A member of the RNA family "Lysine riboswitch aptamer" from Clostridium thailandense, 176 nucleotides long.

RNA sequence: AACUGAGGUAGAGGUGCAAGAUUUAAAAGUAGGGCUGCAGAGGUAAGCGCAAUGAAGCAGCUUAAAAGGAAAUUUUGCCGAAGCGUACAGUUGAUGCUUUGAUACUGUAUAGCUGGGGUUGCAUAGAAUAUAUGCAAAACUGUCACAAGAUAAAUUUGUGGUGAGCUAUCAUUCGU
Numbered sequence: 001a002a003c004u005g006a007g008g009u010a011g012a013g014g015u016g017c018a019a020g021a022u023u024u025a026a027a028a029g030u031a032g033g034g035c036u037g038c039a040g041a042g043g044u045a046a047g048c049g050c051a052a053u054g055a056a057g058c059a060g061c062u063u064a065a066a067a068g069g070a071a072a073u074u075u076u077g078c079c080g081a082a083g084c085g086u087a088c089a090g091u092u093g094a095u096g097c098u099u100u101g102a103u104a105c106u107g108u109a110u111a112g113c114u115g116g117g118g119u120u121g122c123a124u125a126g127a128a129u130a131u132a133u134g135c136a137a138a139a140c141u142g143u144c145a146c147a148a149g150a151u152a153a154a155u156u157u158g159u160g161g162u163g164a165g166c167u168a169u170c171a172u173u174c175g176u
Base pairs, nucleotide, nucleotide: 007170008169009168010167011166016078017077018076019075020074021073022072023071024070032063033062034061035060036059037058038057082114083113084112085110086109087108088107089106090105091104115141116140119137120136121135122134123133124132125131143161144160145159146158147157148156149155
About this RNA: The match comes from Rfam's covariance-model search (117 bits).